[Rfam]
RNA sequence: GGCCGGGUGUUAGGCUAAUAAAAGACCUGUCUUGACAGGGAAUAUGCCAGCCGUCUAUGCGCGGUUUUGAGCACCCGGCCACCCUCUC
Dot-bracket structure: (((((((((...(((((........(((((....)))))...)).))).(((((......)))))......)))))))))........
Numbered sequence: 001g002g003c004c005g006g007g008u009g010u011u012a013g014g015c016u017a018a019u020a021a022a023a024g025a026c027c028u029g030u031c032u033u034g035a036c037a038g039g040g041a042a043u044a045u046g047c048c049a050g051c052c053g054u055c056u057a058u059g060c061g062c063g064g065u066u067u068u069g070a071g072c073a074c075c076c077g078g079c080c081a082c083c084c085u086c087u088c
Stems, first nucleotide, its partner, number of pairs: 001080009013048003016044002026039005050065005